[Rfam]
TPP riboswitch aptamer (THI element): a 101-nucleotide RNA sequence from Pseudomonas sp. OIL-1.
It scores 72 bits against the family's covariance model.
Taxonomically the source falls in Pseudomonas (Bacteria, Pseudomonadota, Pseudomonadales, Pseudomonadaceae).

RNA sequence: CUCAUCUUGACGGGGUGCCUUCUGCGUUGCAGUUGGCUGAGAUAACACCCGUUGAACCUGAACCGGUUAAUACCGGCGUAGGAAUCGAGAUGCGGCAUUCU
Numbered sequence: 001c002u003c004a005u006c007u008u009g010a011c012g013g014g015g016u017g018c019c020u021u022c023u024g025c026g027u028u029g030c031a032g033u034u035g036g037c038u039g040a041g042a043u044a045a046c047a048c049c050c051g052u053u054g055a056a057c058c059u060g061a062a063c064c065g066g067u068u069a070a071u072a073c074c075g076g077c078g079u080a081g082g083a084a085u086c087g088a089g090a091u092g093c094g095g096c097a098u099u100c101u
Stems, first nucleotide, its partner, number of pairs: 006089005011051004016045001017037003057082004063076004